[Rfam]
RNA sequence: UAAAUAUAAAUUCUCCGAUUUUGUUAACCUAAGGCUAUGCUAUGGUUAAUAAAACGGUAGGGUAUAAAUAGAAAUGUUUAUGCCUCCUGUUGGAAAGGAGAAAAGUGUAGUAACCU
Numbered sequence: 001u002a003a004a005u006a007u008a009a010a011u012u013c014u015c016c017g018a019u020u021u022u023g024u025u026a027a028c029c030u031a032a033g034g035c036u037a038u039g040c041u042a043u044g045g046u047u048a049a050u051a052a053a054a055c056g057g058u059a060g061g062g063u064a065u066a067a068a069u070a071g072a073a074a075u076g077u078u079u080a081u082g083c084c085u086c087c088u089g090u091u092g093g094a095a096a097g098g099a100g101a102a103a104a105g106u107g108u109a110g111u112a113a114c115c116u
Base pairs, nucleotide, nucleotide: 011102012101013100014099015098016097019054020053021052022051023050024049025048026047027046028045029044033041034040035039060085061084062083063082064081065080066079067078068077069076070075086093087092
Rfam assigns this 116-nucleotide RNA from Romboutsia hominis to the family "Molybdenum/Tungsten riboswitch aptamer (Moco RNA motif)". The match comes from Rfam's covariance-model search (76 bits).